The family of this 82-nucleotide sequence from Podarcis muralis is "Small nucleolar RNA SNORD87". A search with the family's covariance model found it, with a score of 58 bits.
RNA sequence: GCUGGCACAGUGAUGAUUUCCUUUUGCCGUUUACCCAUCUGAAUUUAUACUGAUGUGUAUUUCCUAAUUCUGAGAUGCCAGU
Numbered sequence: 001g002c003u004g005g006c007a008c009a010g011u012g013a014u015g016a017u018u019u020c021c022u023u024u025u026g027c028c029g030u031u032u033a034c035c036c037a038u039c040u041g042a043a044u045u046u047a048u049a050c051u052g053a054u055g056u057g058u059a060u061u062u063c064c065u066a067a068u069u070c071u072g073a074g075a076u077g078c079c080a081g082u
Stems, first nucleotide, its partner, number of pairs: 001082007
The family's RNA type in Rfam is C/D-box small nucleolar RNA. NCBI's taxonomy places the organism under Eukaryota, Gnathostomata, Sarcopterygii, Laterata, Podarcis. Rfam 15.1 lists 539 matches to the family in 430 species.